[Rfam]
RNA sequence: CGGACGGAUCGGCCGAAUCCCGCGGUGCGAACCCGGGAACCGGGGACCCACUUGCCGGGACGAGCGAUCGUCCCGGCCGGGGUGAACUCACCGUCCGGAAGGCCGGUGACAGGGCGAACUCCAGCCCGAACCCGUCAGCUAACCCGGUAGGCCCACGAGGAGAGGAGAA
Number, nucleotide and partner (000 for none) at each position: 001c000002g000003g000004a000005c000006g000007g000008a000009u000010c000011g153012g152013c151014c150015g000016a000017a000018u038019c037020c036021c035022g034023c000024g000025g000026u000027g000028c000029g000030a000031a000032c000033c000034c022035g021036g020037g019038a018039a148040c147041c146042g145043g144044g143045g000046a000047c000048c000049c079050a000051c000052u000053u000054g000055c000056c000057g000058g000059g000060a000061c000062g000063a000064g000065c000066g000067a000068u000069c000070g000071u000072c000073c000074c000075g000076g000077c000078c000079g049080g133081g132082g131083u000084g000085a000086a000087c000088u109089c108090a107091c106092c105093g104094u000095c000096c000097g000098g000099a000100a000101g000102g000103c000104c093105g092106g091107u090108g089109a088110c000111a000112g127113g126114g125115c124116g000117a000118a000119c000120u000121c000122c000123a000124g115125c114126c113127c112128g000129a000130a000131c082132c081133c080134g000135u000136c000137a000138g000139c000140u000141a000142a000143c044144c043145c042146g041147g040148u039149a000150g014151g013152c012153c011154c000155a000156c000157g000158a000159g000160g000161a000162g000163a000164g000165g000166a000167g000168a000169a000

The family of this 169-nucleotide RNA from Actinomadura rubrisoli is "c-di-AMP riboswitch aptamer (ydaO/yuaA leader)". A search with the family's covariance model found it, with a score of 69 bits. From the family's description: This family represents a conserved RNA structure found upstream of the ydaO and yuaA genes in Bacillus subtilis and related genes in other bacteria.